[Rfam]
RNA sequence: CAACUCUGGAAAGCGGACGCCGCUGGGCGUCCCGCCGACGGUGAAAACCGGGCACGACGCCGCCCGGUGAAGCUCUCAGGCCCAUGACAGAGGGGGA
Numbered sequence: 001c002a003a004c005u006c007u008g009g010a011a012a013g014c015g016g017a018c019g020c021c022g023c024u025g026g027g028c029g030u031c032c033c034g035c036c037g038a039c040g041g042u043g044a045a046a047a048c049c050g051g052g053c054a055c056g057a058c059g060c061c062g063c064c065c066g067g068u069g070a071a072g073c074u075c076u077c078a079g080g081c082c083c084a085u086g087a088c089a090g091a092g093g094g095g096g097a
Base pairs, nucleotide, nucleotide: 001095004092005091006090007089008088015032016031017030018029034081035080036079037077038076041075043073047068048067049066050065051064052063053062

Annotation:
This 97-nucleotide RNA sequence from Pseudofrankia asymbiotica belongs to the Rfam family "Glycine riboswitch aptamer".